The family of this 102-nucleotide sequence from Mandrillus leucophaeus is "Y RNA". The family has 104 seed sequences and 26,986 matches in Rfam 15.1. The family's RNA type in Rfam is non-coding RNA gene.

Nucleotides: 102
Stems, first nucleotide, its partner, number of pairs: 003096006010090002014086001016081005022076001028064003032060002
Number, partner (000 for none) and nucleotide at each position: 001000c002000a003096c004095u005094g006093g007092u008091c009000c010090g011089a012000a013000u014086g015000c016081a017080g018079u019078g020077g021000u022076g023000u024000u025000u026000a027000c028064a029063a030062c031000u032060a033059a034000u035000u036000g037000a038000u039000c040000a041000u042000a043000u044000c045000c046000c047000g048000u049000u050000a051000u052000g053000g054000a055000u056000u057000u058000a059033u060032u061000u062030g063029u064028u065000u066000c067000c068000u069000u070000u071000c072000c073000a074000c075000u076022c077020c078019c079018a080017c081016u082000g083000c084000u085000u086014c087000a088000c089011u090010u091008g092007a093006c094005u095004a096003g097000c098000c099000u100000a101000a102000u